This 208-nucleotide RNA sequence from Staphylococcus saprophyticus belongs to the Rfam family "Listeria sRNA rli60". Taxonomically the source falls in Staphylococcus saprophyticus (Bacteria, Bacillati, Staphylococcaceae, Staphylococcus). A reference for the family is Toledo-Arana et al. (2009), "The Listeria transcriptional landscape from saprophytism to virulence", Nature.

RNA sequence: AUUUAUCAAAUUUUUAGAUAUUUCAAACAAAUCAGAAAAAUAAACCAUUCUAUCGAGAGGAGUAUAAUAAAAUGACCAAACAUACAACGCAAGCUCAACCAACAACUUCAAAUAUUUUAGUCAUUUUAUUAUGCUCAUAGGACUGGAACUUUAGUAAAGAAACUACUAAACGUUUAAGUCCUUAUUCUAGUUGAAUGGGGCUUUAAAG
Numbered sequence: 001a002u003u004u005a006u007c008a009a010a011u012u013u014u015u016a017g018a019u020a021u022u023u024c025a026a027a028c029a030a031a032u033c034a035g036a037a038a039a040a041u042a043a044a045c046c047a048u049u050c051u052a053u054c055g056a057g058a059g060g061a062g063u064a065u066a067a068u069a070a071a072a073u074g075a076c077c078a079a080a081c082a083u084a085c086a087a088c089g090c091a092a093g094c095u096c097a098a099c100c101a102a103c104a105a106c107u108u109c110a111a112a113u114a115u116u117u118u119a120g121u122c123a124u125u126u127u128a129u130u131a132u133g134c135u136c137a138u139a140g141g142a143c144u145g146g147a148a149c150u151u152u153a154g155u156a157a158a159g160a161a162a163c164u165a166c167u168a169a170a171c172g173u174u175u176a177a178g179u180c181c182u183u184a185u186u187c188u189a190g191u192u193g194a195a196u197g198g199g200g201c202u203u204u205a206a207a208g
Base pairs, nucleotide, nucleotide: 023207046197047196048195049194050193052191053190055188058135059134061132068119069118070117071116072115073114074113139182140181141180142179143178148174149172151169152168153167154166155165156164